[Rfam]
RNA sequence: ACUGCAUACAAACCCAAAGAGCAUUGUUCAUAAUAAAAUGUUCUUGUCAUGUGUGCAGAUAUUAAAUGUACCUUGUCGCCUUUCAAAAGCUGACAUGUUUUUGGAAGUGAAGUUUAAGGUUGUACAAGC
Dot-bracket structure: .((((((((.........(((((((.((......))))))))).......))))))))...........(((((.....(((((((((((......)))))))))))........))))).........

Rfam assigns this 129-nucleotide RNA sequence from Salvator merianae to the family "Small nucleolar RNA SNORA68". The organism belongs to Salvator, within Eukaryota. Pairs were carried over by alignment from the consensus structure, which was predicted with PFOLD. Rfam describes the family as follows. U68 is a member of the H/ACA class of small nucleolar RNAs (snoRNAs) which act as guides in the the modification of uridines to pseudouridines. For this family Rfam cites "The family of box ACA small nucleolar RNAs is defined by an evolutionarily conserved secondary structure and ubiquitous sequence elements essential for RNA accumulation" (Ganot et al., Genes Dev, 1997). The family's RNA type in Rfam is H/ACA-box small nucleolar RNA. The family has 26 seed sequences and 1,079 matches in Rfam 15.1.